[Rfam]
RNA sequence: AUUCUCUCUUUGCCUUUUGGCUUAGAUCAAGUGUAGUAUCUGUUCUUUUCAGUUUAAUCGCUGAAAUCACCCCAUCGGGGUGUUUCCGAUUAUUCUUGUUUUUGGGAAUCGCCGAGAGACCUAUGGCUUGCUAUGUCUCUUGGCACCGGUGUCCUUGCCGUUGCACUCCUGGCAUGCGACGCCGAAAACUC
Numbered sequence: 001a002u003u004c005u006c007u008c009u010u011u012g013c014c015u016u017u018u019g020g021c022u023u024a025g026a027u028c029a030a031g032u033g034u035a036g037u038a039u040c041u042g043u044u045c046u047u048u049u050c051a052g053u054u055u056a057a058u059c060g061c062u063g064a065a066a067u068c069a070c071c072c073c074a075u076c077g078g079g080g081u082g083u084u085u086c087c088g089a090u091u092a093u094u095c096u097u098g099u100u101u102u103u104g105g106g107a108a109u110c111g112c113c114g115a116g117a118g119a120c121c122u123a124u125g126g127c128u129u130g131c132u133a134u135g136u137c138u139c140u141u142g143g144c145a146c147c148g149g150u151g152u153c154c155u156u157g158c159c160g161u162u163g164c165a166c167u168c169c170u171g172g173c174a175u176g177c178g179a180c181g182c183c184g185a186a187a188a189c190u191c
Stems, first nucleotide, its partner, number of pairs: 007026003012021003047066006068082006111144008123134004147184006154176001156174004
Dot-bracket structure: ......(((..(((....)))..)))....................((((((........)))))).((((((...))))))............................((((((((....((((....))))..))))))))..((((((.(.((((...........)))).)..)))))).......
RNA: U2 spliceosomal RNA